Glycine riboswitch aptamer: a 142-nucleotide sequence from Arsenicicoccus cauae.
The match comes from Rfam's covariance-model search (44 bits).
Taxonomically the source falls in Arsenicicoccus (Bacteria, Actinomycetota, Actinomycetes, Intrasporangiaceae).
RNA sequence: UCACCUCACGUGGGAGAGAUCCCGCGCGGCGAGGGCCACGCGACGACGCGAUCAUCCGGCGUCGCGCCGGGCCGCCCGUCCGCGGGGCGCCGAAGGGGCAACUACCCCGGAACCUCUCAGGCACCCGGACCACGUGGGCAGG
Numbered sequence: 001u002c003a004c005c006u007c008a009c010g011u012g013g014g015a016g017a018g019a020u021c022c023c024g025c026g027c028g029g030c031g032a033g034g035g036c037c038a039c040g041c042g043a044c045g046a047c048g049c050g051a052u053c054a055u056c057c058g059g060c061g062u063c064g065c066g067c068c069g070g071g072c073c074g075c076c077c078g079u080c081c082g083c084g085g086g087g088c089g090c091c092g093a094a095g096g097g098g099c100a101a102c103u104a105c106c107c108c109g110g111a112a113c114c115u116c117u118c119a120g121g122c123a124c125c126c127g128g129a130c131c132a133c134g135u136g137g138g139c140a141g142g
Base pairs, nucleotide, nucleotide: 006137007136008135009134010133011132012131013130020087021086022085023084024083025082026081089122090121091120092118093117096116097115098114102109